[Rfam]
RNA: Small nucleolar RNA ACA64
RNA sequence: ACAGUCUGAAAAUCACUUGGGGUCUUCUCUAGCCCCUGGUGCGAUAACUGUGCCAACAGCAGAGGACACAUUAAACCAUUGCUCACGGUAAAGUGUGGGGAGUGAAACCCAUGUUCCUAUAAUC
Number, nucleotide and partner (000 for none) at each position: 001a000002c000003a000004g000005u000006c050007u000008g048009a000010a045011a000012a000013u000014c041015a040016c039017u000018u000019g000020g000021g034022g033023u032024c000025u000026u000027c000028u000029c000030u000031a000032g023033c022034c021035c000036c000037u000038g000039g016040u015041g014042c000043g000044a000045u010046a000047a000048c008049u000050g006051u000052g000053c000054c000055a000056a000057c000058a000059g000060c000061a000062g000063a000064g000065g117066a000067c000068a114069c113070a112071u111072u000073a000074a000075a000076c000077c104078a103079u102080u101081g000082c000083u000084c097085a096086c095087g000088g000089u000090a000091a000092a000093g000094u000095g086096u085097g084098g000099g000100g000101a080102g079103u078104g077105a000106a000107a000108c000109c000110c000111a071112u070113g069114u068115u000116c000117c065118u000119a000120u000121a000122a000123u000124c000